[Rfam]
RNA sequence: ACCACUGAGCCACCUUCCCAGCCCCUAAAGAAUAUUUUGAAAAUAUGGGCUGGGAAGGUGGCUCAGUGGU
Numbered sequence: 001a002c003c004a005c006u007g008a009g010c011c012a013c014c015u016u017c018c019c020a021g022c023c024c025c026u027a028a029a030g031a032a033u034a035u036u037u038u039g040a041a042a043a044u045a046u047g048g049g050c051u052g053g054g055a056a057g058g059u060g061g062c063u064c065a066g067u068g069g070u
Stems, first nucleotide, its partner, number of pairs: 002069023
Rfam assigns this 70-nucleotide RNA sequence from Dipodomys ordii to the family "mir-3473 microRNA precursor family". A search with the family's covariance model found it, with a score of 75 bits. The family has 5 seed sequences and 1,094 matches in Rfam 15.1. Gene Ontology terms of the family: miRNA-mediated post-transcriptional gene silencing, cellular response to mechanical stimulus and RISC complex.